RNA sequence: UAUUUCUUAUCGCUGAAUCUUAAUAGAACGGAGGACCCAUCGAAUGCAUUAGAUUACUGCAUGGGGUGAAUCCUAAUAUAGGUAGGGCUCCUCUUAUGGCCCGAAUCCGACAGCUAACUCCGUAAGCGUAAUGAAGAGAGGAA
Dot-bracket structure: ..........((((...(((....)))((((((....((......................))(((.....((((...))))..((((..........))))...))).........)))))).))))...............
A member of the RNA family "c-di-AMP riboswitch aptamer (ydaO/yuaA leader)" from Peribacillus psychrosaccharolyticus, 143 nucleotides long. Taxonomically the source falls in Peribacillus (Bacteria, Bacilli, Caryophanales, Bacillaceae).